[Rfam]
Nucleotides: 390
Stems, first nucleotide, its partner, number of pairs: 008027006053097002055094003103120004124176004141154004187228006199218004205271004229252003233248006262279006280332004287305005314327005349383005363370002
Number, partner (000 for none) and nucleotide at each position: 001000g002000c003000a004000c005000a006000c007000c008027c009026c010025a011024g012023a013022c014000c015000u016000u017000u018000u019000u020000c021000a022013g023012u024011c025010u026009g027008g028000c029000a030000g031000c032000a033000a034000c035000a036000c037000a038000u039000u040000c041000g042000a043000g044000c045000g046000g047000u048000u049000g050000g051000c052000g053097g054096u055094u056093g057092g058000u059000g060000a061000u062000u063000a064000u065000g066000g067000g068000c069000a070000u071000a072000a073000c074000a075000u076000u077000g078000g079000c080000a081000a082000u083000a084000c085000c086000c087000u088000u089000u090000u091000c092057u093056c094055a095000g096054g097053c098000u099000c100000c101000g102000u103120g104119c105118a106117g107000g108000g109000u110000g111000u112000u113000u114000u115000u116000c117106c118105u119104g120103c121000a122000u123000a124176g125175u126174a127173a128000c129000u130000u131000u132000u133000a134000u135000c136000u137000c138000c139000g140000a141154g142153c143152g144151c145000a146000c147000a148000a149000g150000g151144g152143c153142g154141c155000a156000u157000u158000u159000a160000u161000g162000g163000c164000a165000u166000u167000a168000u169000u170000c171000u172000g173127u174126u175125a176124c177000c178000u179000c180000u181000c182000u183000u184000u185000u186000c187228u188227a189226c190225a191224c192223g193000g194000c195000u196000c197000u198000c199218g200217c201216a202215c203000u204000c205271c206270c207269a208268a209000a210000u211000u212000u213000g214000c215202g216201u217200g218199c219000u220000u221000u222000g223192c224191g225190u226189g227188u228187a229252c230251g231250g232000a233248c234247u235246a236245u237244u238243u239000g240000c241000a242000c243238a244237a245236a246235u247234a248233g249000a250231c251230c252229g253000c254000u255000c256000c257000a258000a259000c260000u261000u262279g263278c264277u265276a266275c267274a268208u269207u270206g271205g272000u273000c274267u275266g276265u277264a278263g279262u280332u281331c282330c283329g284000c285000u286000c287305g288304g289303u290302g291301u292000g293000g294000u295000u296000a297000u298000u299000u300000a301291a302290c303289a304288c305287c306000c307000u308000a309000u310000u311000u312000a313000a314327g315326c316325g317324u318323u319000c320000c321000g322000a323318a324317a325316c326315g327314c328000a329283c330282g331281g332280a333000c334000a335000a336000u337000u338000u339000u340000u341000g342000a343000u344000u345000u346000u347000c348000c349383c350382a351381g352380c353379c354000u355000c356000a357000a358000a359000a360000a361000u362000a363370g364369g365000u366000u367000u368000c369364c370363c371000a372000c373000a374000a375000a376000a377000a378000g379353g380352g381351c382350u383349g384000u385000u386000g387000u388000u389000u390000u
Bacteroidales-2 RNA: a 390-nucleotide RNA.
The family's RNA type in Rfam is small RNA.
The base pairs follow the family's consensus structure, which is taken from published work.